[Rfam]
RNA: Bacterial RNase P class A
RNA sequence: CUAGAGGGCCGGGCGACUGCGGCCCCCGCGGAGGGCGCCCGUCAAAGUAAUACUUUGACGGGACCCGAGGCGGGGGGCGAGGAAAGUCCGGGCUCCGCGGAACAACGGUGCCGGGUAACACCCGGCGGGCGGGCGGCCUUGUGCCGACCGUUCAGGGACAGUGCCACAGAGAGCAGACGGCGACCGCUUAGGCGACGCCACGGUGAAAGGGUGCGGCAAGAGCGCACCGCGCGCCUGGCAACAGGGGCGGCACGGCAAACCCCACCGGGAGCAAGACCGAAUAGGGGUAGCGAGGGCGCAUUCGUGCGUCCGGGGCGUGUUCCCGCCUGCUACCCGGGUUGGUCGCUUGAGCCUGUCGGUAACGGCAGGCCUAGAGGAAUGGUCGCCCAUCCGCAUCUGCGGUGGACAGAACCCGGCUUACAGGCCCUCUGGCAAU
Numbered sequence: 001c002u003a004g005a006g007g008g009c010c011g012g013g014c015g016a017c018u019g020c021g022g023c024c025c026c027c028g029c030g031g032a033g034g035g036c037g038c039c040c041g042u043c044a045a046a047g048u049a050a051u052a053c054u055u056u057g058a059c060g061g062g063a064c065c066c067g068a069g070g071c072g073g074g075g076g077g078c079g080a081g082g083a084a085a086g087u088c089c090g091g092g093c094u095c096c097g098c099g100g101a102a103c104a105a106c107g108g109u110g111c112c113g114g115g116u117a118a119c120a121c122c123c124g125g126c127g128g129g130c131g132g133g134c135g136g137c138c139u140u141g142u143g144c145c146g147a148c149c150g151u152u153c154a155g156g157g158a159c160a161g162u163g164c165c166a167c168a169g170a171g172a173g174c175a176g177a178c179g180g181c182g183a184c185c186g187c188u189u190a191g192g193c194g195a196c197g198c199c200a201c202g203g204u205g206a207a208a209g210g211g212u213g214c215g216g217c218a219a220g221a222g223c224g225c226a227c228c229g230c231g232c233g234c235c236u237g238g239c240a241a242c243a244g245g246g247g248c249g250g251c252a253c254g255g256c257a258a259a260c261c262c263c264a265c266c267g268g269g270a271g272c273a274a275g276a277c278c279g280a281a282u283a284g285g286g287g288u289a290g291c292g293a294g295g296g297c298g299c300a301u302u303c304g305u306g307c308g309u310c311c312g313g314g315g316c317g318u319g320u321u322c323c324c325g326c327c328u329g330c331u332a333c334c335c336g337g338g339u340u341g342g343u344c345g346c347u348u349g350a351g352c353c354u355g356u357c358g359g360u361a362a363c364g365g366c367a368g369g370c371c372u373a374g375a376g377g378a379a380u381g382g383u384c385g386c387c388c389a390u391c392c393g394c395a396u397c398u399g400c401g402g403u404g405g406a407c408a409g410a411a412c413c414c415g416g417c418u419u420a421c422a423g424g425c426c427c428u429c430u431g432g433c434a435a436u
Stems, first nucleotide, its partner, number of pairs: 001432010011421001012387007020079002023076006084419003088416005093271004102321001106267005111125005126155001127153006156262002161260002163256003178202002180198003185194003210228006229251001230249003234245004275344004285335006313328005351370008